[Rfam]
RNA sequence: GUUCGGUUGGAGCAAACUUCGCGAAAGCGUAGGACGCUAAAGUCAUGGGUCUAAGGCCCGCCUGAGAGAAUAUUACUAUACUCUUCAGACAGGUUAUGAUCGCCAGACUACAAGC
Numbered sequence: 001g002u003u004c005g006g007u008u009g010g011a012g013c014a015a016a017c018u019u020c021g022c023g024a025a026a027g028c029g030u031a032g033g034a035c036g037c038u039a040a041a042g043u044c045a046u047g048g049g050u051c052u053a054a055g056g057c058c059c060g061c062c063u064g065a066g067a068g069a070a071u072a073u074u075a076c077u078a079u080a081c082u083c084u085u086c087a088g089a090c091a092g093g094u095u096a097u098g099a100u101c102g103c104c105a106g107a108c109u110a111c112a113a114g115c
Base pairs, nucleotide, nucleotide: 012037013036017032018031020029021028022027041109042108043107044106046105047104048103049100050099051098056094057093058092
Shown here is a 115-nucleotide RNA from Desulfosporosinus orientis, a member of the family "c-di-GMP-I riboswitch aptamer". A search with the family's covariance model found it, with a score of 47 bits. The family's consensus secondary structure is taken from published work.